[Rfam]
RNA: TPP riboswitch aptamer (THI element)
Organism: Branchiibius sp. NY16-3462-2
RNA sequence: AUGGCACGACAGGGGAGCGCACCAGGCGCUGAGAGUGCGGGACAGCCCGCAGACCCUCGAACCUGAUCCGGUUAGUACCGGUGGAGGAAGUCGAGCCCCUUCUCGA
Numbered sequence: 001a002u003g004g005c006a007c008g009a010c011a012g013g014g015g016a017g018c019g020c021a022c023c024a025g026g027c028g029c030u031g032a033g034a035g036u037g038c039g040g041g042a043c044a045g046c047c048c049g050c051a052g053a054c055c056c057u058c059g060a061a062c063c064u065g066a067u068c069c070g071g072u073u074a075g076u077a078c079c080g081g082u083g084g085a086g087g088a089a090g091u092c093g094a095g096c097c098c099c100u101u102c103u104c105g106a
Stems, first nucleotide, its partner, number of pairs: 007093004011057004017029004036051005062087003068081004